[Rfam]
Small nucleolar RNA SNORA51: a 124-nucleotide RNA from Prolemur simus. The family's consensus secondary structure was predicted with PFOLD. Its family is annotated with nucleolus and RNA processing in the Gene Ontology. It scores 72 bits against the family's covariance model. Rfam describes the family as follows. ACA51 is a member of the H/ACA class of snoRNA that guide the sites of modification of uridines to pseudouridines.
RNA sequence: GGCUUCCUCGUGCUCGCUACAGGCUGUGCUCUGACGCUAUGAGCAGGAGGCAGAGUAAACGCACCCCACUUGUGCCUCGGCCCAGGCCCUAUGCCUGGUCUGAGUUGUGAAUGGCAGAACAUGG
Numbered sequence: 001g002g003c004u005u006c007c008u009c010g011u012g013c014u015c016g017c018u019a020c021a022g023g024c025u026g027u028g029c030u031c032u033g034a035c036g037c038u039a040u041g042a043g044c045a046g047g048a049g050g051c052a053g054a055g056u057a058a059a060c061g062c063a064c065c066c067c068a069c070u071u072g073u074g075c076c077u078c079g080g081c082c083c084a085g086g087c088c089c090u091a092u093g094c095c096u097g098g099u100c101u102g103a104g105u106u107g108u109g110a111a112u113g114g115c116a117g118a119a120c121a122u123g124g
Base pairs, nucleotide, nucleotide: 002051003050004049005048006047007046008045022035026031066114067113068112078102079101080100082098083097084096085095086094087093